This 117-nucleotide sequence from Paramesorhizobium endophyticum belongs to the Rfam family "Alphaproteobacterial ar14". It is annotated as a small RNA. The literature on the family includes a 2012 paper in RNA Biol by del Val et al., "A survey of sRNA families in alpha-proteobacteria". The source organism's lineage runs through Bacteria, Pseudomonadati, Pseudomonadota, Phyllobacteriaceae and Paramesorhizobium.
[Rfam]
Nucleotides: 117
Stems, first nucleotide, its partner, number of pairs: 007037003011033002016031002043073010081111010
Number, partner (000 for none) and nucleotide at each position: 001000a002000a003000u004000c005000a006000u007037u008036g009035a010000g011033u012032u013000c014000a015000a016031c017030a018000u019000u020000g021000g022000c023000u024000c025000c026000u027000c028000c029000c030017u031016g032012a033011a034000c035009u036008c037007a038000a039000u040000a041000c042000c043073u044072g045071a046070a047069c048068g049067u050066g051065g052064c053000g054000c055000c056000u057000c058000c059000u060000c061000c062000c063000u064052g065051c066050c067049a068048u069047g070046u071045u072044c073043a074000a075000a076000g077000a078000u079000a080000u081111g082110g083109c084108c085107c086106g087105c088104u089103g090102c091000a092000u093000c094000c095000u096000c097000c098000u099000c100000c101000c102090g103089c104088a105087g106086c107085g108084g109083g110082c111081c112000u113000u114000u115000u116000u117000a